The family of this 86-nucleotide RNA sequence from Pseudoflavonifractor sp. An176 is "ZMP/ZTP riboswitch aptamer (pfl RNA motif)". Lineage of the source: Bacteria > Bacillati > Bacillota > Eubacteriales > Pseudoflavonifractor.
[Rfam]
RNA sequence: CGGUGAUCAUACACCUGGCGGUAUUAAGUGGAAUUAACCACGUGGCGUAUGAUCGUGAAAGCCGGCCGACCGUCUGGGCAAGAAAA
Number, nucleotide and partner (000 for none) at each position: 001c000002g000003g056004u055005g054006a053007u052008c051009a050010u049011a048012c047013a000014c000015c044016u000017g074018g073019c072020g071021g070022u000023a000024u000025u000026a000027a000028g041029u040030g039031g038032a000033a000034u000035u000036a000037a000038c031039c030040a029041c028042g000043u000044g015045g000046c000047g012048u011049a010050u009051g008052a007053u006054c005055g004056u003057g000058a000059a000060a000061g000062c000063c000064g000065g079066c078067c077068g000069a000070c021071c020072g019073u018074c017075u000076g000077g067078g066079c065080a000081a000082g000083a000084a000085a000086a000